Rfam assigns this 65-nucleotide RNA sequence from Eolophus roseicapilla to the family "Selenocysteine insertion sequence 1". The family's RNA type in Rfam is cis-regulatory element. Rfam describes the family as follows. The incorporation of selenocysteine into a protein sequence is directed by an in-frame UGA codon (usually a stop codon) within the coding region of the mRNA. Selenoprotein mRNAs contain a conserved secondary structure in the 3' UTR that is required for the distinction of UGA stop from UGA selenocysteine.

RNA sequence: GUGUGCUUAUGAAGGUCGCUAACGAAAGAGUAAUUAACUCAGUUGGCGUUCAGAUGCCCUCACAU
Dot-bracket structure: (((((........((.(((((((.....(((.....)))..))))))).)).........)))))